[Rfam]
Source information: Shown here is a 119-nucleotide sequence from Erinaceus europaeus, a member of the family "Small nucleolar RNA SNORD22". It scores 57 bits against the family's covariance model. For this family Rfam cites "A mammalian gene with introns instead of exons generating stable RNA products" (Tycowski et al., Nature, 1996). It is annotated as a C/D-box small nucleolar RNA.

RNA sequence: UGCUGAUGAGGAAUAAGCAUCCUAUCUGGUCCUGUUCUAGACCCAGAAUCAGCAAUUCUGAACCCACUGGGGCUAGUAAGAGAGAAGUUGAGAAUUUACUAAGUUAUGUAAGGGAGCAU
Numbered sequence: 001u002g003c004u005g006a007u008g009a010g011g012a013a014u015a016a017g018c019a020u021c022c023u024a025u026c027u028g029g030u031c032c033u034g035u036u037c038u039a040g041a042c043c044c045a046g047a048a049u050c051a052g053c054a055a056u057u058c059u060g061a062a063c064c065c066a067c068u069g070g071g072g073c074u075a076g077u078a079a080g081a082g083a084g085a086a087g088u089u090g091a092g093a094a095u096u097u098a099c100u101a102a103g104u105u106a107u108g109u110a111a112g113g114g115a116g117c118a119u
Base pairs, nucleotide, nucleotide: 001118002117003116004115